The record is a 207-nucleotide RNA sequence from Halalkalibacter nanhaiisediminis, which matches "T-box leader" in Rfam. NCBI's taxonomy places the organism under Bacteria, Bacillati, Bacilli, Bacillaceae, Halalkalibacter. The family's RNA type in Rfam is cis-regulatory leader. Uncharged tRNA acts as the effector for transcription antitermination of genes in the T-box leader family. T-boxes are found upstream of many aminoacyl-tRNA synthetase genes and some amino acid biosynthetic genes usually in Gram-positive bacteria. The anticodon of a specific tRNA base pairs to a specifier sequence within the T-box motif, and the NCCA acceptor tail of the tRNA base pairs to a conserved bulge in the T-box antiterminator hairpin. On this family, see Grundy et al., J Bacteriol 1994: "Interaction between the acceptor end of tRNA and the T box stimulates antitermination in the Bacillus subtilis tyrS gene: a new role for the discriminator base". The base pairs follow the family's consensus structure, which is taken from published work. It scores 109 bits against the family's covariance model.
RNA sequence: GUUAAAUCGUAGAAGGAAUCAGUACGAAACAGACCGCUUAAAGAGAAGGGCACCCAUGGCUGAAAGGUGCCCGAAGCGAAGGGUUUUGGAACGCUACUCCUGAGUGCAGGUAAUCCCUGUCGUUUGGCCGCGUUAAGGUGUAAAGUGAUAGACAAAUCUUGUCUAUAAUUAGGGUGGUACCGCGUGAUGAUAACUCUCGUCCCUUUG
Numbered sequence: 001g002u003u004a005a006a007u008c009g010u011a012g013a014a015g016g017a018a019u020c021a022g023u024a025c026g027a028a029a030c031a032g033a034c035c036g037c038u039u040a041a042a043g044a045g046a047a048g049g050g051c052a053c054c055c056a057u058g059g060c061u062g063a064a065a066g067g068u069g070c071c072c073g074a075a076g077c078g079a080a081g082g083g084u085u086u087u088g089g090a091a092c093g094c095u096a097c098u099c100c101u102g103a104g105u106g107c108a109g110g111u112a113a114u115c116c117c118u119g120u121c122g123u124u125u126g127g128c129c130g131c132g133u134u135a136a137g138g139u140g141u142a143a144a145g146u147g148a149u150a151g152a153c154a155a156a157u158c159u160u161g162u163c164u165a166u167a168a169u170u171a172g173g174g175u176g177g178u179a180c181c182g183c184g185u186g187a188u189g190a191u192a193a194c195u196c197u198c199g200u201c202c203c204u205u206u207g
Stems, first nucleotide, its partner, number of pairs: 008104001015100003025088006036077003049071006107119004121132003148166007171204004182200003186196001